[Rfam]
RNA sequence: GAAAUUCCGGUGGGCCUCCUCCUCCCUGCCCGCCGGUAGCGGACGGCGCGAUCCUCCUCCUCCCAUACCGCGCCGUCCGACGUUAGAAGGCCCGCCGAUCCUCCCCGGCGGGCCUUUUCU
Number, nucleotide and partner (000 for none) at each position: 001g000002a000003a000004a000005u000006u000007c036008c035009g034010g033011u032012g031013g030014g029015c028016c000017u000018c000019c000020u000021c000022c000023u000024c000025c000026c000027u000028g015029c014030c013031c012032g011033c010034c009035g008036g007037u000038a000039g000040c000041g078042g077043a076044c075045g074046g073047c072048g071049c070050g069051a000052u000053c000054c000055u000056c000057c000058u000059c000060c000061u000062c000063c000064c000065a000066u000067a000068c000069c050070g049071c048072g047073c046074c045075g044076u043077c042078c041079g000080a000081c000082g000083u000084u000085a000086g000087a000088a115089g114090g113091c112092c111093c110094g109095c108096c107097g106098a000099u000100c000101c000102u000103c000104c000105c000106c097107g096108g095109c094110g093111g092112g091113c090114c089115u088116u000117u000118u000119c000120u000
The family of this 120-nucleotide sequence from Nitratireductor sp. StC3 is "Alphaproteobacterial ar14". Rfam links the family to the GO term biological process involved in symbiotic interaction. NCBI's taxonomy places the organism under Bacteria, Alphaproteobacteria, Hyphomicrobiales, Phyllobacteriaceae, Nitratireductor. From the family's description: Smr14C2 was renamed NfeR1 (Nodule Formation Efficiency RNA) highly expressed in salt stress and during the symbiotic interaction on legume roots. The match comes from Rfam's covariance-model search (72 bits).